RNA sequence: UGUCAGUUUCAGGGAAGGUGCAAUUCCUUACUGGCGGUAACCCGACCCCCGGGAUUCAUAACGGGAAGAAUCGGGAAGCCCGCGAACCGCGGAAGCGGCCGAUCCGGUGAGAAUCCGGAGCCAACGGUAAAAGUCCGGAUGGAAGAAACGGAGA
Numbered sequence: 001u002g003u004c005a006g007u008u009u010c011a012g013g014g015a016a017g018g019u020g021c022a023a024u025u026c027c028u029u030a031c032u033g034g035c036g037g038u039a040a041c042c043c044g045a046c047c048c049c050c051g052g053g054a055u056u057c058a059u060a061a062c063g064g065g066a067a068g069a070a071u072c073g074g075g076a077a078g079c080c081c082g083c084g085a086a087c088c089g090c091g092g093a094a095g096c097g098g099c100c101g102a103u104c105c106g107g108u109g110a111g112a113a114u115c116c117g118g119a120g121c122c123a124a125c126g127g128u129a130a131a132a133g134u135c136c137g138g139a140u141g142g143a144a145g146a147a148a149c150g151g152a153g154a
Stems, first nucleotide, its partner, number of pairs: 003152002006149005016028003030134002032123002034083004087098002103119005125137003

FMN riboswitch aptamer (RFN element): a 154-nucleotide RNA from Bifidobacterium stellenboschense. It scores 92 bits against the family's covariance model.